[Rfam]
Small nucleolar RNA R11/Z151: an 86-nucleotide RNA from Trema andersonii. Pairs were carried over by alignment from the consensus structure, which was predicted with PFOLD. Gene Ontology terms of the family: nucleolus and RNA processing. For this family Rfam cites "Identification of 66 box C/D snoRNAs in Arabidopsis thaliana: extensive gene duplications generated multiple isoforms predicting new ribosomal RNA 2'-O-methylation sites" (Barneche et al., J Mol Biol, 2001). Lineage of the source: Eukaryota > Streptophyta > Streptophytina > Mesangiospermae > Trema.
RNA sequence: GGGCUUAUGAUGAUAAUUUAAUUAUUUUAGCGCAUUUCAAUUAGAUUUUAUAGUUAAUAAUUUAAUUGUUACACACACUGAUGCCC
Dot-bracket structure: ((((..............................................................................))))